This 65-nucleotide sequence from Terrilactibacillus tamarindi belongs to the Rfam family "Bacillaceae-1 RNA".
[Rfam]
RNA sequence: GGGGGAUGACGCAGGCUAAAAACGCGACGUCCUGUCGCAACGCCUGCACUAGCACAUCCUGUGCG
Numbered sequence: 001g002g003g004g005g006a007u008g009a010c011g012c013a014g015g016c017u018a019a020a021a022a023c024g025c026g027a028c029g030u031c032c033u034g035u036c037g038c039a040a041c042g043c044c045u046g047c048a049c050u051a052g053c054a055c056a057u058c059c060u061g062u063g064c065g
Stems, first nucleotide, its partner, number of pairs: 011047006024038005052064004
Lineage of the source: Bacteria > Bacillati > Bacillota > Bacilli > Terrilactibacillus.